[Rfam]
RNA sequence: AUGAGUAACGAUUAAGAAGUUAAAAUACUUCUCGCCGAAUACGAAAGGGUUUCAUGGAAAAGGUAAUCUGCCAUGAAUUAUACGGCUUCUAAGGAGACUAUAACGAAUUGUAAUUCUCUGAUGACAUAGAAAAAUAUAAUUCCUACAUAAAUAGGAACUAGAAAAGUAUUUUUCAUUUAGUUGAACCGUACCUUAAACCGACACAGGUUCGUGGGUAGAGUAUACUAAGGCGUAGAGAUAAGGCUAGUGAAGGAACUCGGCAAAAUGCUUUUGUAAGUUCGACGACAAGAAAGGAAAUAAUAGUUACGUAUGUAUUAUUAUUUUGGCACAGAAACGAGGGCUCCGACUGUUUACUAAAAACACAGCAACUUGCUAAGACGAAAAGUACUUGUAUAAGUUGUGAACUCUGUCCAAUGCCAAUGGUGUAAAGGAGGUGAUUUUCUUUAGGGAAAAUUUACUAACUGAUGCGUUGGUCAAUGACGGUCUUAACCAUAAGGAUCUGAAAGUAGCGAAAUUCCUUGGCCAUUAAAUGUGGUCCUGCAUGAAUGAGGUAACGUGGCCCUGCUGUCUCCACUAGUUUCUCAGUGAAAUU
Numbered sequence: 001a002u003g004a005g006u007a008a009c010g011a012u013u014a015a016g017a018a019g020u021u022a023a024a025a026u027a028c029u030u031c032u033c034g035c036c037g038a039a040u041a042c043g044a045a046a047g048g049g050u051u052u053c054a055u056g057g058a059a060a061a062g063g064u065a066a067u068c069u070g071c072c073a074u075g076a077a078u079u080a081u082a083c084g085g086c087u088u089c090u091a092a093g094g095a096g097a098c099u100a101u102a103a104c105g106a107a108u109u110g111u112a113a114u115u116c117u118c119u120g121a122u123g124a125c126a127u128a129g130a131a132a133a134a135u136a137u138a139a140u141u142c143c144u145a146c147a148u149a150a151a152u153a154g155g156a157a158c159u160a161g162a163a164a165a166g167u168a169u170u171u172u173u174c175a176u177u178u179a180g181u182u183g184a185a186c187c188g189u190a191c192c193u194u195a196a197a198c199c200g201a202c203a204c205a206g207g208u209u210c211g212u213g214g215g216u217a218g219a220g221u222a223u224a225c226u227a228a229g230g231c232g233u234a235g236a237g238a239u240a241a242g243g244c245u246a247g248u249g250a251a252g253g254a255a256c257u258c259g260g261c262a263a264a265a266u267g268c269u270u271u272u273g274u275a276a277g278u279u280c281g282a283c284g285a286c287a288a289g290a291a292a293g294g295a296a297a298u299a300a301u302a303g304u305u306a307c308g309u310a311u312g313u314a315u316u317a318u319u320a321u322u323u324u325g326g327c328a329c330a331g332a333a334a335c336g337a338g339g340g341c342u343c344c345g346a347c348u349g350u351u352u353a354c355u356a357a358a359a360a361c362a363c364a365g366c367a368a369c370u371u372g373c374u375a376a377g378a379c380g381a382a383a384a385g386u387a388c389u390u391g392u393a394u395a396a397g398u399u400g401u402g403a404a405c406u407c408u409g410u411c412c413a414a415u416g417c418c419a420a421u422g423g424u425g426u427a428a429a430g431g432a433g434g435u436g437a438u439u440u441u442c443u444u445u446a447g448g449g450a451a452a453a454u455u456u457a458c459u460a461a462c463u464g465a466u467g468c469g470u471u472g473g474u475c476a477a478u479g480a481c482g483g484u485c486u487u488a489a490c491c492a493u494a495a496g497g498a499u500c501u502g503a504a505a506g507u508a509g510c511g512a513a514a515u516u517c518c519u520u521g522g523c524c525a526u527u528a529a530a531u532g533u534g535g536u537c538c539u540g541c542a543u544g545a546a547u548g549a550g551g552u553a554a555c556g557u558g559g560c561c562c563u564g565c566u567g568u569c570u571c572c573a574c575u576a577g578u579u580u581c582u583c584a585g586u587g588a589a590a591u592u
Stems, first nucleotide, its partner, number of pairs: 001592001008586002015032006033232004041212004047192002052076006061069002083188003088124002093119003097111001100108002128144002131141002148183003152179004198207002214226004235583003242579008251570003268293005277283001294324011325329001337563006344556002348362003365401008373391001378386002405550003409481003414478002416474005424469003430462001433459005441450002482500006501505001511538001521537006
Dot-bracket structure: (......((.....((((((......))))))((((....((((..((...((((((...((.....)).))))))......(((..((...(((.(..((.....))..).....)))...))...((.((.......)).))...(((.((((....................)))).)))..)))..)).....((......)).)))).((((.....))))..))))..(((....((((((((.(((..............(((((....(.....).....)))))(((((((((((.........)))))))))))(...).......((((((.((..(((.........)))..(((((((((....((.....))....)..))))))))...(((.(((..(((((((...(((...(..(((((...((......))....)))))..)....))))))))..)))))((((((.......))))))(...).....(.........((((((.....))))))).........)))....)).))))))....))).)))))))).))).)).....)
RNA: Bacterial large subunit ribosomal RNA, nucleotides 1313 to 1904